[Rfam]
The family of this 104-nucleotide RNA from Gossypium gossypioides is "Plant small nucleolar RNA R71".
By type it is a C/D-box small nucleolar RNA.
A search with the family's covariance model found it, with a score of 50 bits.
Rfam 15.1 lists 278,378 matches to the family in 216 species.

RNA sequence: ACGUGAUGAGGGCACUUCCGUAAUAAUUCUUUGUACCUUUCCCAUGCCUCAUACCAGGACUUAUCAUCCAUUUUUUGGAAAGCAGUGAUCUCGUUCCUCAACUU
Numbered sequence: 001a002c003g004u005g006a007u008g009a010g011g012g013c014a015c016u017u018c019c020g021u022a023a024u025a026a027u028u029c030u031u032u033g034u035a036c037c038u039u040u041c042c043c044a045u046g047c048c049u050c051a052u053a054c055c056a057g058g059a060c061u062u063a064u065c066a067u068c069c070a071u072u073u074u075u076u077g078g079a080a081a082g083c084a085g086u087g088a089u090c091u092c093g094u095u096c097c098u099c100a101a102c103u104u
Stems, first nucleotide, its partner, number of pairs: 001104001003102002005099002057068001